[Rfam]
RNA: Bacillaceae-1 RNA
Organism: Pueribacillus theae
RNA sequence: AGCUUAAGAUGUUCGGCUAAAAGCAGCUCGUCCUGUGAUAACGUCGAACUGGCUCACAUCAUGUGAG
Numbered sequence: 001a002g003c004u005u006a007a008g009a010u011g012u013u014c015g016g017c018u019a020a021a022a023g024c025a026g027c028u029c030g031u032c033c034u035g036u037g038a039u040a041a042c043g044u045c046g047a048a049c050u051g052g053c054u055c056a057c058a059u060c061a062u063g064u065g066a067g
Stems, first nucleotide, its partner, number of pairs: 011049007025039001027037001029035001053067005